The record is a 229-nucleotide RNA sequence from Streptosporangium sandarakinum, which matches "Actinobacteria sRNA Ms_IGR-5" in Rfam. The base pairs follow the family's consensus structure. It is annotated as a small RNA. The literature on the family includes a 2013 paper in RNA by Li et al., "Identification of small RNAs in Mycobacterium smegmatis using heterologous Hfq".

RNA sequence: ACGCAGAAAGGAGGUGGUCCAGACAAUGGUUGACAGUUCUUGGGCUAGCGAGGUGGCUGUCCGCUAGGACGCCGCGACUCCGGACUCUGUCCGGACGUCUCGCGACGUUCGGCGAAUCCAUGACGAUCACCGGAACCCCGGGCUGCCGGAGGGCGGGACGCGAAGAGCCCGUCUAUGGUCCAUCCGGCCCCGCCGCGAACGGCGGGAGCAGGCCCGGGGUUCUUUUCUU
Numbered sequence: 001a002c003g004c005a006g007a008a009a010g011g012a013g014g015u016g017g018u019c020c021a022g023a024c025a026a027u028g029g030u031u032g033a034c035a036g037u038u039c040u041u042g043g044g045c046u047a048g049c050g051a052g053g054u055g056g057c058u059g060u061c062c063g064c065u066a067g068g069a070c071g072c073c074g075c076g077a078c079u080c081c082g083g084a085c086u087c088u089g090u091c092c093g094g095a096c097g098u099c100u101c102g103c104g105a106c107g108u109u110c111g112g113c114g115a116a117u118c119c120a121u122g123a124c125g126a127u128c129a130c131c132g133g134a135a136c137c138c139c140g141g142g143c144u145g146c147c148g149g150a151g152g153g154c155g156g157g158a159c160g161c162g163a164a165g166a167g168c169c170c171g172u173c174u175a176u177g178g179u180c181c182a183u184c185c186g187g188c189c190c191c192g193c194c195g196c197g198a199a200c201g202g203c204g205g206g207a208g209c210a211g212g213c214c215c216g217g218g219g220u221u222c223u224u225u226u227c228u229u
Stems, first nucleotide, its partner, number of pairs: 013061006062114004067109002070107002073104001075102003132223013